[Rfam]
RNA: Bacterial small signal recognition particle RNA
Organism: Kocuria rhizophila
Nucleotides: 097
Stems, first nucleotide, its partner, number of pairs: 005090010015078001018076005024068006035060003043052003
Number, partner (000 for none) and nucleotide at each position: 001000a002000c003000c004000a005090g006089c007088c008087c009086c010085u011084c012083g013082u014081g015078u016000g017000g018076c019075g020074c021073c022072a023000u024068c025067u026066c027065g028064u029063a030000a031000a032000a033000c034000u035060c036059c037058c038000c039000c040000a041000g042000g043052g044051c045050c046000g047000g048000a049000a050045g051044g052043c053000a054000g055000c056000a057000a058037g059036g060035g061000u062000a063029u064028a065027u066026g067025g068024g069000c070000u071000c072022u073021g074020g075019c076018g077000g078015g079000u080000g081014c082013a083012c084011g085010g086009g087008g088007g089006g090005u091000c092000u093000u094000c095000a096000c097000g